[Rfam]
RNA sequence: UUGUCAUGAUGAUUUCAAGUAUGGUUUCGCAUUUUAAAUUCAGAUUUAAUUGUUGAUGAAACUCCUUGGCUGUCUGAACGA
Numbered sequence: 001u002u003g004u005c006a007u008g009a010u011g012a013u014u015u016c017a018a019g020u021a022u023g024g025u026u027u028c029g030c031a032u033u034u035u036a037a038a039u040u041c042a043g044a045u046u047u048a049a050u051u052g053u054u055g056a057u058g059a060a061a062c063u064c065c066u067u068g069g070c071u072g073u074c075u076g077a078a079c080g081a
Stems, first nucleotide, its partner, number of pairs: 001081004
The family of this 81-nucleotide RNA sequence from Bemisia tabaci is "Small nucleolar RNA SNORD53/SNORD92". For this family Rfam cites "Site-specific ribose methylation of preribosomal RNA: a novel function for small nucleolar RNAs" (Kiss-Laszlo et al., Cell, 1996). NCBI's taxonomy places the organism under Eukaryota, Panarthropoda, Pterygota, Aleyrodoidea, Bemisia. Clan: SNORD52 clan. The pairing is the family consensus, mapped onto this sequence.